The record is a 128-nucleotide RNA sequence, which matches "Small nucleolar RNA SNORA24" in Rfam.

RNA sequence: CUCUAUUUAACUUUGGGACCUGUCGGCUGUGUCAUGCUUCCUUUGUAGCCAUGGAAGAGCUUCUUAUUUAUUGGAAAAGCUGUUAUCUUUUGUAUAGUAUCAGAGUCUGACUUGCACAAGUAACAUUC
Numbered sequence: 001c002u003c004u005a006u007u008u009a010a011c012u013u014u015g016g017g018a019c020c021u022g023u024c025g026g027c028u029g030u031g032u033c034a035u036g037c038u039u040c041c042u043u044u045g046u047a048g049c050c051a052u053g054g055a056a057g058a059g060c061u062u063c064u065u066a067u068u069u070a071u072u073g074g075a076a077a078a079g080c081u082g083u084u085a086u087c088u089u090u091u092g093u094a095u096a097g098u099a100u101c102a103g104a105g106u107c108u109g110a111c112u113u114g115c116a117c118a119a120g121u122a123a124c125a126u127u128c
Stems, first nucleotide, its partner, number of pairs: 002055005015041004021034002024031001065125001067123002071119003074115001076113002080103003085098002
Rfam's curators put it in the seed alignment. Rfam classes the family as an H/ACA-box small nucleolar RNA. Rfam describes the family as follows. ACA24 is a member of the H/ACA class of snoRNA that guide the sites of modification of uridines to pseudouridines. The family's consensus secondary structure was predicted with RNAfold.